[Rfam]
RNA sequence: CGGAUUCAAUGAUGACUGCAUAGUUAAGCAGCUAAACCAUGAUGAAUAUUUAGCGUUGUCUUUCACUCCUAUCUGAUGUGUUGG
Numbered sequence: 001c002g003g004a005u006u007c008a009a010u011g012a013u014g015a016c017u018g019c020a021u022a023g024u025u026a027a028g029c030a031g032c033u034a035a036a037c038c039a040u041g042a043u044g045a046a047u048a049u050u051u052a053g054c055g056u057u058g059u060c061u062u063u064c065a066c067u068c069c070u071a072u073c074u075g076a077u078g079u080g081u082u083g084g
Stems, first nucleotide, its partner, number of pairs: 004081002007078002